The family of this 132-nucleotide sequence is "Small nucleolar RNA SNORA17". Rfam 15.1 lists 5,784 matches to the family in 673 species. From the family's description: snoRNA ACA 17 belongs to the H/ACA family of snoRNAs and is predicted to guide pseudouridylation of the 28S rRNA at positions U4659 and U4598. It shares the same host gene together with ACA43. The base pairs follow the family's consensus structure, which was predicted with RNAalifold. Rfam links the family to the GO terms RNA processing and nucleolus.

RNA sequence: UCUGCCUCUAGAGGCAUUGUAUGUGUGGCUGCUGUGUCUCAUGUGUGUCAGUAGGUGGCAGAGAGGAGACAGGCUAUGCCUACUCUCAGUGUACUUAUGUAUAAACAUCUGAAUGUUUUGAAGUCUAACAUU
Number, nucleotide and partner (000 for none) at each position: 001u000002c061003u060004g059005c058006c057007u055008c054009u053010a052011g000012a000013g049014g048015c047016a000017u000018u000019g046020u045021a044022u043023g000024u041025g040026u000027g038028g037029c036030u000031g000032c000033u000034g000035u000036g029037u028038c027039u000040c025041a024042u000043g022044u021045g020046u019047g015048u014049c013050a000051g000052u010053a009054g008055g007056u000057g006058g005059c004060a003061g002062a000063g000064a000065g000066g000067a000068g129069a000070c000071a126072g125073g124074c123075u122076a000077u120078g000079c000080c000081u000082a116083c115084u000085c000086u112087c111088a110089g109090u107091g106092u105093a000094c000095u000096u000097a000098u000099g000100u000101a000102u000103a000104a000105a092106c091107a090108u000109c089110u088111g087112a086113a000114u000115g083116u082117u000118u000119u000120g077121a000122a075123g074124u073125c072126u071127a000128a000129c068130a000131u000132u000